[Rfam]
RNA sequence: GAGUAAUGAUGUGUUAAACCUAUUCCAUUUCUGAAAUGCUGUGGAAAAAAAUUAGCUGAACUC
Numbered sequence: 001g002a003g004u005a006a007u008g009a010u011g012u013g014u015u016a017a018a019c020c021u022a023u024u025c026c027a028u029u030u031c032u033g034a035a036a037u038g039c040u041g042u043g044g045a046a047a048a049a050a051a052u053u054a055g056c057u058g059a060a061c062u063c
Stems, first nucleotide, its partner, number of pairs: 001063004
RNA: Small nucleolar RNA SNORD98